[Rfam]
RNA sequence: UUUACCUAUUGAACUUUUCAGGUUCCUCGCACCUACCUGGGUAUGUUAGUGGGCUCACUGUGUGCUCUGAUGGGUGUGCUGACCAUCGCCUUGCCUGUUCCGGUCAUUGUAUCAAAC
Numbered sequence: 001u002u003u004a005c006c007u008a009u010u011g012a013a014c015u016u017u018u019c020a021g022g023u024u025c026c027u028c029g030c031a032c033c034u035a036c037c038u039g040g041g042u043a044u045g046u047u048a049g050u051g052g053g054c055u056c057a058c059u060g061u062g063u064g065c066u067c068u069g070a071u072g073g074g075u076g077u078g079c080u081g082a083c084c085a086u087c088g089c090c091u092u093g094c095c096u097g098u099u100c101c102g103g104u105c106a107u108u109g110u111a112u113c114a115a116a117c
Base pairs, nucleotide, nucleotide: 002116007111008110009109011107013104014103015102021100022099024097040080041079042078043077052066053065054064